[Rfam]
RNA: Purine riboswitch aptamer
RNA sequence: AUCGACAGGUUGAGGCGAACUCGUAUAUCCUCGGGAAUCCGGCCCGAGAGUCUCUACCCGGCGACCGUGAAUCGCCGGACUACGAGGAAGCCGAGCCGCGCA
Numbered sequence: 001a002u003c004g005a006c007a008g009g010u011u012g013a014g015g016c017g018a019a020c021u022c023g024u025a026u027a028u029c030c031u032c033g034g035g036a037a038u039c040c041g042g043c044c045c046g047a048g049a050g051u052c053u054c055u056a057c058c059c060g061g062c063g064a065c066c067g068u069g070a071a072u073c074g075c076c077g078g079a080c081u082a083c084g085a086g087g088a089a090g091c092c093g094a095g096c097c098g099c100g101c102a
Stems, first nucleotide, its partner, number of pairs: 020086006030048006058078007